[Rfam]
RNA sequence: GAAGUGAGCCAAACGAUCGCUGCCGUCUAAGUCUUCGUGACCGAAACGGGGGAGGAAAGUCCGGGCUUCGCAGGGCAAGGUGCCAGAUAACGUCUGGGCGGCGUGAGCCGACGGCAAGUGCAGCAGAGAGCAGACCGCCAUAAUGUUUCGACAUUGUGGUAAGGGUGAAAGGGUGCGGUAAGAGCGCACCGCAUGUCUGGUAACAGUUCAUGGCAAGGUAAACCCCACCUGAAGCAAGACCAAAUAGGAAUCCUGAGGUACGGCCCGUACUGGAUUCGGGUAGGUUGCUGGAGCGUAUGAGUAAUUGUACGCCUAGAGGAAUGAUCGUUCUCGACAGAACCCGGCUUAUCGGCUCACUUCUUAA
Numbered sequence: 001g002a003a004g005u006g007a008g009c010c011a012a013a014c015g016a017u018c019g020c021u022g023c024c025g026u027c028u029a030a031g032u033c034u035u036c037g038u039g040a041c042c043g044a045a046a047c048g049g050g051g052g053a054g055g056a057a058a059g060u061c062c063g064g065g066c067u068u069c070g071c072a073g074g075g076c077a078a079g080g081u082g083c084c085a086g087a088u089a090a091c092g093u094c095u096g097g098g099c100g101g102c103g104u105g106a107g108c109c110g111a112c113g114g115c116a117a118g119u120g121c122a123g124c125a126g127a128g129a130g131c132a133g134a135c136c137g138c139c140a141u142a143a144u145g146u147u148u149c150g151a152c153a154u155u156g157u158g159g160u161a162a163g164g165g166u167g168a169a170a171g172g173g174u175g176c177g178g179u180a181a182g183a184g185c186g187c188a189c190c191g192c193a194u195g196u197c198u199g200g201u202a203a204c205a206g207u208u209c210a211u212g213g214c215a216a217g218g219u220a221a222a223c224c225c226c227a228c229c230u231g232a233a234g235c236a237a238g239a240c241c242a243a244a245u246a247g248g249a250a251u252c253c254u255g256a257g258g259u260a261c262g263g264c265c266c267g268u269a270c271u272g273g274a275u276u277c278g279g280g281u282a283g284g285u286u287g288c289u290g291g292a293g294c295g296u297a298u299g300a301g302u303a304a305u306u307g308u309a310c311g312c313c314u315a316g317a318g319g320a321a322u323g324a325u326c327g328u329u330c331u332c333g334a335c336a337g338a339a340c341c342c343g344g345c346u347u348a349u350c351g352g353c354u355c356a357c358u359u360c361u362u363a364a
Stems, first nucleotide, its partner, number of pairs: 001360010011349001012329007020052002023049004028044001057347003061344005066234004073266004078230005083097005098112001099110004113225002118223002120219002135164002137160009172190006191214001192212004197206003238286004248277006257271005293312008

A member of the RNA family "Bacterial RNase P class A" from Acinetobacter rudis, 364 nucleotides long. Rfam links the family to the GO terms tRNA processing, dimeric ribonuclease P complex and ribonuclease P activity. By type it is a ribozyme. A reference for the family is Frank and Pace (1998), "Ribonuclease P: unity and diversity in a tRNA processing ribozyme", Annu Rev Biochem. Pairs were carried over by alignment from the consensus structure, which is taken from published work.